Background
The family of this 140-nucleotide sequence from Metabacillus lacus is "FMN riboswitch aptamer (RFN element)". The base pairs follow the family's consensus structure, which is taken from published work. The organism belongs to Metabacillus, within Bacteria.
RNA sequence: AUCAAUCUUCGGGGCAGGGUGAAAUUCCCGACCGGCGGUGAUGAACUGAUUUCAGUUCUAAGCCCGCGAGCCAAUGCAACACGGCAGGAUUCGGUGCGAUUCCGAAGCCGACAGUACAGUCUGGAUGGGAGAAGAUGGAG
Numbered sequence: 001a002u003c004a005a006u007c008u009u010c011g012g013g014g015c016a017g018g019g020u021g022a023a024a025u026u027c028c029c030g031a032c033c034g035g036c037g038g039u040g041a042u043g044a045a046c047u048g049a050u051u052u053c054a055g056u057u058c059u060a061a062g063c064c065c066g067c068g069a070g071c072c073a074a075u076g077c078a079a080c081a082c083g084g085c086a087g088g089a090u091u092c093g094g095u096g097c098g099a100u101u102c103c104g105a106a107g108c109c110g111a112c113a114g115u116a117c118a119g120u121c122u123g124g125a126u127g128g129g130a131g132a133a134g135a136u137g138g139a140g
Base pairs, nucleotide, nucleotide: 003138005136006135007134008133009132010131017029018028019027031120032119033110034109035067036066037065038064062108063107070085071084072083090106091105092104093103094102112123113122114121